[Rfam]
RNA sequence: GCGCAGGCCGUUCAGCGAGGCUGGGCCUGCUCUGUGGUCCUGUCCUUUCCUGUAGUGUCUGCUAGAGAGACCAGGGUGGUUUGAGGCCUCGCCGUGAUACUCCGCGGCAAGGUUAUAGAUACCUUGGACACUG
Numbered sequence: 001g002c003g004c005a006g007g008c009c010g011u012u013c014a015g016c017g018a019g020g021c022u023g024g025g026c027c028u029g030c031u032c033u034g035u036g037g038u039c040c041u042g043u044c045c046u047u048u049c050c051u052g053u054a055g056u057g058u059c060u061g062c063u064a065g066a067g068a069g070a071c072c073a074g075g076g077u078g079g080u081u082u083g084a085g086g087c088c089u090c091g092c093c094g095u096g097a098u099a100c101u102c103c104g105c106g107g108c109a110a111g112g113u114u115a116u117a118g119a120u121a122c123c124u125u126g127g128a129c130a131c132u133g
Stems, first nucleotide, its partner, number of pairs: 003062006018046003023040005072126005087112003091108002094105003